[Rfam]
RNA sequence: UAUAUUUGCCGCUCGAAAGAAAAUCUUUCAGCGUACAUAAAAAUCAUUUACAAUAAUAUUAGCAUG
Numbered sequence: 001u002a003u004a005u006u007u008g009c010c011g012c013u014c015g016a017a018a019g020a021a022a023a024u025c026u027u028u029c030a031g032c033g034u035a036c037a038u039a040a041a042a043a044u045c046a047u048u049u050a051c052a053a054u055a056a057u058a059u060u061a062g063c064a065u066g
Stems, first nucleotide, its partner, number of pairs: 015029005

Rfam assigns this 66-nucleotide RNA sequence to the family "S15-Flavobacteria ribosomal protein leader". By type it is a cis-regulatory leader. The family is grouped with related families in Rfam's "Ribosomal Protein S15 Leader clan". The base pairs follow the family's consensus structure, which is taken from published work.